[Rfam]
This 131-nucleotide RNA sequence from Turnix velox belongs to the Rfam family "Small Cajal body specific RNA 15".
It is annotated as a small Cajal body RNA.
The literature on the family includes a 2002 paper in EMBO J by Darzacq et al., "Cajal body-specific small nuclear RNAs: a novel class of 2'-O-methylation and pseudouridylation guide RNAs".
Gene Ontology terms of the family: RNA processing, nucleolus and Cajal body.
It scores 92 bits against the family's covariance model.
Its Rfam clan is "SCARNA4 clan".
NCBI's taxonomy places the organism under Eukaryota, Vertebrata, Tetrapoda, Theropoda, Turnix.

RNA sequence: CUGGAGGACUAAGAAAGUGGUGCCAGUGAUUUUAUAUUGUCUCCACUGAUACUAUCCUCCUAAAUUAACUGGUGGAAGAACAAGGCCUGCCUGGGAGAUAAAGUCAGGACCUACUUCCUCUACCCACAAGA
Numbered sequence: 001c002u003g004g005a006g007g008a009c010u011a012a013g014a015a016a017g018u019g020g021u022g023c024c025a026g027u028g029a030u031u032u033u034a035u036a037u038u039g040u041c042u043c044c045a046c047u048g049a050u051a052c053u054a055u056c057c058u059c060c061u062a063a064a065u066u067a068a069c070u071g072g073u074g075g076a077a078g079a080a081c082a083a084g085g086c087c088u089g090c091c092u093g094g095g096a097g098a099u100a101a102a103g104u105c106a107g108g109a110c111c112u113a114c115u116u117c118c119u120c121u122a123c124c125c126a127c128a129a130g131a
Base pairs, nucleotide, nucleotide: 003060004059005058006057007056008055010051011050018045019044020043022041024039026035027034028033071124072123073122074121075120076119078117083112084111085110086108087107088106089105